Shown here is an 86-nucleotide RNA from Nicotiana tabacum, a member of the family "MIR8024 microRNA precursor family". Rfam 15.1 lists 661 matches to the family in 8 species.
[Rfam]
RNA sequence: UUGGAGGAUUCAUAGACUUCAACUUGGAGGCUUGACGGAUUCGAAGACUUCAACUUGAAGACUUGGAGGAUUCAUAGACUUCAACU
Numbered sequence: 001u002u003g004g005a006g007g008a009u010u011c012a013u014a015g016a017c018u019u020c021a022a023c024u025u026g027g028a029g030g031c032u033u034g035a036c037g038g039a040u041u042c043g044a045a046g047a048c049u050u051c052a053a054c055u056u057g058a059a060g061a062c063u064u065g066g067a068g069g070a071u072u073c074a075u076a077g078a079c080u081u082c083a084a085c086u
Stems, first nucleotide, its partner, number of pairs: 001084006009076001014071001017068005025059001028056001032053004037048001
Dot-bracket structure: ((((((..(....(..(((((...(..(...((((.(..........).))))..)..)....)))))..)....)..))))))..